[Rfam]
RNA sequence: AGUGAGGAUAGAGGUGCAAAAACCAUUAGUAAGCAAUGUGGAGGGUAAUGAGGUCCGUUGACCAUUGCAGAAAGGGGGAUUUGCCGAAGCUUCAAGAAGCUCAUAUUCUUGAAGUUGGUUCUGUCAUUGAAUAAAUGCAGGACUGUCAUAUAGGAGACUAUAUGGAGGGCUAUCUUACGC
Numbered sequence: 001a002g003u004g005a006g007g008a009u010a011g012a013g014g015u016g017c018a019a020a021a022a023c024c025a026u027u028a029g030u031a032a033g034c035a036a037u038g039u040g041g042a043g044g045g046u047a048a049u050g051a052g053g054u055c056c057g058u059u060g061a062c063c064a065u066u067g068c069a070g071a072a073a074g075g076g077g078g079a080u081u082u083g084c085c086g087a088a089g090c091u092u093c094a095a096g097a098a099g100c101u102c103a104u105a106u107u108c109u110u111g112a113a114g115u116u117g118g119u120u121c122u123g124u125c126a127u128u129g130a131a132u133a134a135a136u137g138c139a140g141g142a143c144u145g146u147c148a149u150a151u152a153g154g155a156g157a158c159u160a161u162a163u164g165g166a167g168g169g170c171u172a173u174c175u176u177a178c179g180c
Stems, first nucleotide, its partner, number of pairs: 006175006016084005023077002033068006088116011117144007125137004146165007
This 180-nucleotide RNA sequence from Mesobacillus persicus belongs to the Rfam family "Lysine riboswitch aptamer". The match comes from Rfam's covariance-model search (126 bits). The source organism's lineage runs through Bacteria, Bacillati, Bacillota, Caryophanales and Mesobacillus.